[Rfam]
RNA sequence: UCGGCCCCGGUUCACGUACAGGCAAGCCCGCCUCGUACGACCCGGCGCC
Dot-bracket structure: ..(((.((((....((((((((........))).)))))..)))).)))

A member of the RNA family "L31-Actinobacteria ribosomal protein leader", 49 nucleotides long. The base pairs follow the family's consensus structure, which is taken from published work. The family is grouped with related families in Rfam's "Ribosomal Protein L31 Leader clan". Rfam's curators put it in the seed alignment.